[Rfam]
RNA sequence: AAGCUAGAUGAUGAGAAUGGAUUUUAACAUCUCACGACGGUCAUCUGAGAUGCUUACAGUGUCUAGGUCGAUACAAAUCCUAUCUCUGAUGGCU
Numbered sequence: 001a002a003g004c005u006a007g008a009u010g011a012u013g014a015g016a017a018u019g020g021a022u023u024u025u026a027a028c029a030u031c032u033c034a035c036g037a038c039g040g041u042c043a044u045c046u047g048a049g050a051u052g053c054u055u056a057c058a059g060u061g062u063c064u065a066g067g068u069c070g071a072u073a074c075a076a077a078u079c080c081u082a083u084c085u086c087u088g089a090u091g092g093c094u
Stems, first nucleotide, its partner, number of pairs: 001094001004091001051061003
This 94-nucleotide sequence from Musa acuminata belongs to the Rfam family "Small nucleolar RNA Z161/Z228". The base pairs follow the family's consensus structure, which was predicted with PFOLD. Its family is annotated with nucleolus and RNA processing in the Gene Ontology. For this family Rfam cites "The high diversity of snoRNAs in plants: identification and comparative study of 120 snoRNA genes from Oryza sativa" (Chen et al., Nucleic Acids Res, 2003). NCBI's taxonomy places the organism under Eukaryota, Mesangiospermae, Petrosaviidae, commelinids, Musa acuminata. The match comes from Rfam's covariance-model search (56 bits).